[Rfam]
RNA sequence: UAUUAAUAAUUAAACAAAGCUUAUAUAAAUUUCGGAUAUGGCGAAAUGUUUCUACCGGCUACCUUAAAUAGCUGACUAUAAGAAUUAUGUUGUUGUAG
Numbered sequence: 001u002a003u004u005a006a007u008a009a010u011u012a013a014a015c016a017a018a019g020c021u022u023a024u025a026u027a028a029a030u031u032u033c034g035g036a037u038a039u040g041g042c043g044a045a046a047u048g049u050u051u052c053u054a055c056c057g058g059c060u061a062c063c064u065u066a067a068a069u070a071g072c073u074g075a076c077u078a079u080a081a082g083a084a085u086u087a088u089g090u091u092g093u094u095g096u097a098g
Stems, first nucleotide, its partner, number of pairs: 020082006029047006056074006
The family of this 98-nucleotide sequence from Propionigenium maris is "Purine riboswitch aptamer". Gene Ontology term of the family: purine nucleobase biosynthetic process.